[Rfam]
RNA sequence: CUUUCAACCCGCCUCAAGCUAGGAGGGGCGUUGAAAC
Numbered sequence: 001c002u003u004u005c006a007a008c009c010c011g012c013c014u015c016a017a018g019c020u021a022g023g024a025g026g027g028g029c030g031u032u033g034a035a036a037c
Stems, first nucleotide, its partner, number of pairs: 005033004009027002013023002
Record summary:
A member of the RNA family "CRISPR RNA direct repeat element" from Nostocales cyanobacterium HT-58-2, 37 nucleotides long. Gene Ontology term of the family: defense response. The base pairs follow the family's consensus structure, which was predicted with WAR.